RNA: c-di-GMP-I-GGC riboswitch aptamer
Organism: Candidatus Vecturithrix granuli
RNA sequence: UCUGAUAAAGCCAAACCCAUCGUGAGGUGGGGACGGAAAGCUACGGGUCUUGGUGUUGUCUUCACGAAGAUCGCCGGGCUGCCAGAA
Numbered sequence: 001u002c003u004g005a006u007a008a009a010g011c012c013a014a015a016c017c018c019a020u021c022g023u024g025a026g027g028u029g030g031g032g033a034c035g036g037a038a039a040g041c042u043a044c045g046g047g048u049c050u051u052g053g054u055g056u057u058g059u060c061u062u063c064a065c066g067a068a069g070a071u072c073g074c075c076g077g078g079c080u081g082c083c084a085g086a087a
Base pairs, nucleotide, nucleotide: 001087003084004083011036012035016031017030018029019028020027021026034073039080040079041078042077044076045075046074047071048070049069050068051067